[Rfam]
RNA sequence: GUCUUGGCGUGCGACUGGCGUGGCCGGGUCAACCGGCGGGGAGCGUGUGAAUGGCAUCGUCCGCCUGGGUGCCCAUC
Numbered sequence: 001g002u003c004u005u006g007g008c009g010u011g012c013g014a015c016u017g018g019c020g021u022g023g024c025c026g027g028g029u030c031a032a033c034c035g036g037c038g039g040g041g042a043g044c045g046u047g048u049g050a051a052u053g054g055c056a057u058c059g060u061c062c063g064c065c066u067g068g069g070u071g072c073c074c075a076u077c
Stems, first nucleotide, its partner, number of pairs: 004051002007048006015040002017065004024036004054072005
Dot-bracket structure: ...((.((((((..(([[[[...((((.....))))..))..)))))).))..(((((...]]]]..))))).....
About this RNA
The family of this 77-nucleotide RNA from Curtobacterium sp. ISL-83 is "ZMP/ZTP riboswitch aptamer (pfl RNA motif)". It scores 44 bits against the family's covariance model. The source organism's lineage runs through Bacteria, Actinomycetota, Actinomycetes, Microbacteriaceae and Curtobacterium. The literature on the family includes a 2015 paper in Nat Struct Mol Biol by Jones and Ferre-D'Amare, "Recognition of the bacterial alarmone ZMP through long-distance association of two RNA subdomains".